Rfam assigns this 169-nucleotide RNA sequence from Hansenula anomala to the family "Small nucleolar RNA snR4". Pairs were carried over by alignment from the consensus structure, which was predicted with CMfinder. The family's RNA type in Rfam is C/D-box small nucleolar RNA.
RNA sequence: AACUAUUACAGUCGAUGAGGAUAGGUUAUAGUUAAGUCAUCCGUUGAAGUAUCUGGCCGUGCUCUCGAUAGGAACUAGUGUCUUUGUCGUGGGGCUGGCGGGCGCUGUGGAUUGCACCGUGGCCUUUCACCACCUUAUAGCGGUGCUUGUGCGUGUACAACUGAGGCUG
Numbered sequence: 001a002a003c004u005a006u007u008a009c010a011g012u013c014g015a016u017g018a019g020g021a022u023a024g025g026u027u028a029u030a031g032u033u034a035a036g037u038c039a040u041c042c043g044u045u046g047a048a049g050u051a052u053c054u055g056g057c058c059g060u061g062c063u064c065u066c067g068a069u070a071g072g073a074a075c076u077a078g079u080g081u082c083u084u085u086g087u088c089g090u091g092g093g094g095c096u097g098g099c100g101g102g103c104g105c106u107g108u109g110g111a112u113u114g115c116a117c118c119g120u121g122g123c124c125u126u127u128c129a130c131c132a133c134c135u136u137a138u139a140g141c142g143g144u145g146c147u148u149g150u151g152c153g154u155g156u157a158c159a160a161c162u163g164a165g166g167c168u169g
Stems, first nucleotide, its partner, number of pairs: 009169005016129004023125006029114005034108001038107002041104001046053002055103001057101004062093003066089003070085002072082001074081002131145004
Dot-bracket structure: ........(((((..((((...((((((((((((...((.(....((....)).(.((((.(((.(((.(((.((....))).)).))).)))....)))).)).))).))))).....)))))))))).((((.......))))...................)))))
The source organism's lineage runs through Eukaryota, Dikarya, Saccharomycetes, Wickerhamomycetaceae and Hansenula.